[Rfam]
RNA: tp2
Organism: Salmonella enterica
RNA sequence: GGUAUUCCUUAUCUAUCUAAUACGUUGAGUUAUCUGGAACCUGUCCCAUUAAACUUUCGUCAGAAAGCUUAAUAAGACAGGUUCUGCGUUUAUUGCCUGGCCCAUAAGGUGU
Numbered sequence: 001g002g003u004a005u006u007c008c009u010u011a012u013c014u015a016u017c018u019a020a021u022a023c024g025u026u027g028a029g030u031u032a033u034c035u036g037g038a039a040c041c042u043g044u045c046c047c048a049u050u051a052a053a054c055u056u057u058c059g060u061c062a063g064a065a066a067g068c069u070u071a072a073u074a075a076g077a078c079a080g081g082u083u084c085u086g087c088g089u090u091u092a093u094u095g096c097c098u099g100g101c102c103c104a105u106a107a108g109g110u111g112u
Stems, first nucleotide, its partner, number of pairs: 001097004022089004036085010048073005054067005